The family of this 111-nucleotide RNA sequence from Sulfurisoma sediminicola is "Guanidine-I riboswitch aptamer".
[Rfam]
RNA sequence: CGAAAGUGUCGCUAGGGUUCCGGUCCGCCAUCUCGUUCGGCGGAUGCCUGGUCCGAGAGCGACCGGCUCCGCGAGCGCGGAGCUACACGGAGGGACAAAAGCCCGGGAGGA
Numbered sequence: 001c002g003a004a005a006g007u008g009u010c011g012c013u014a015g016g017g018u019u020c021c022g023g024u025c026c027g028c029c030a031u032c033u034c035g036u037u038c039g040g041c042g043g044a045u046g047c048c049u050g051g052u053c054c055g056a057g058a059g060c061g062a063c064c065g066g067c068u069c070c071g072c073g074a075g076c077g078c079g080g081a082g083c084u085a086c087a088c089g090g091a092g093g094g095a096c097a098a099a100a101g102c103c104c105g106g107g108a109g110g111a
Stems, first nucleotide, its partner, number of pairs: 008063005015054002020051002022048001023045006065084008086106001088109001092104003
The pairing is the family consensus, mapped onto this sequence.